[Rfam]
RNA sequence: CUCGCGUGCCCGGGGUCGGUGUAAUUCCGAGCCGGCGGUCAUAGUCCGCGACCCGAGUCCCGCAAGGGGCGAGGUUGAACCGGUGGAACUCCGGUACCGACGGUGAAAGUCCGGAGGAGAGGCGCACGCU
Number, nucleotide and partner (000 for none) at each position: 001c000002u000003c128004g127005c000006g125007u124008g123009c122010c121011c000012g000013g000014g000015g000016u000017c029018g028019g027020u000021g000022u000023a000024a000025u000026u000027c019028c018029g017030a000031g110032c109033c099034g098035g049036c048037g047038g046039u000040c000041a000042u000043a000044g097045u096046c038047c037048g036049c035050g000051a000052c000053c074054c073055g000056a000057g000058u000059c000060c000061c000062g000063c000064a000065a000066g000067g000068g000069g000070c000071g000072a000073g054074g053075u000076u000077g000078a000079a095080c094081c093082g092083g091084u000085g000086g000087a000088a000089c000090u000091c083092c082093g081094g080095u079096a045097c044098c034099g033100a000101c113102g112103g111104u000105g000106a000107a000108a000109g032110u031111c103112c102113g101114g000115a000116g000117g000118a000119g000120a000121g010122g009123c008124g007125c006126a000127c004128g003129c000130u000
RNA: FMN riboswitch aptamer (RFN element)